[Rfam]
The record is an 81-nucleotide RNA from Mauremys mutica, which matches "let-7 microRNA precursor family" in Rfam. It scores 77 bits against the family's covariance model. Its family is annotated with miRNA-mediated post-transcriptional gene silencing and RISC complex in the Gene Ontology. This family represents the microRNAs (miRNA) let-7 and mir-98. let-7 was identified from a study of developmental timing in C. elegans, and was later shown to be part of a much larger class of non-coding RNAs termed miRNAs. Rfam 15.1 lists 8,694 matches to the family in 797 species.
Nucleotides: 081
Base pairs, nucleotide, nucleotide: 001081003079004078005077006076008075009074010073011072012071013070014069015068016067017066018065019064020063021062022061023060024059025058026057027056032042033041034040035039045052
Number, partner (000 for none) and nucleotide at each position: 001081g002000g003079g004078g005077g006076a007000u008075g009074a010073g011072g012071u013070a014069g015068u016067a017066g018065a019064u020063u021062g022061u023060a024059u025058a026057g027056u028000u029000u030000u031000a032042g033041g034040g035039u036000c037000a038000c039035a040034c041033c042032c043000g044000g045052u046000c047000u048000c049000g050000g051000a052045g053000a054000u055000a056027a057026c058025u059024a060023u061022a062021c063020a064019g065018u066017c067016u068015a069014c070013u071012g072011u073010c074009u075008u076006u077005c078004c079003c080000g081001c